[Rfam]
RNA sequence: AUGCGUUAAGGAUUGCAGCGACAUCCUUUUGUUUUUACAAAAGAUAUAGCGGAAAGCCUGACCUCAA
Numbered sequence: 001a002u003g004c005g006u007u008a009a010g011g012a013u014u015g016c017a018g019c020g021a022c023a024u025c026c027u028u029u030u031g032u033u034u035u036u037a038c039a040a041a042a043g044a045u046a047u048a049g050c051g052g053a054a055a056g057c058c059u060g061a062c063c064u065c066a067a
Base pairs, nucleotide, nucleotide: 009059010058011057013055014054018050019049023045024044025043029040030039031038032037
RNA: Flavo-1 RNA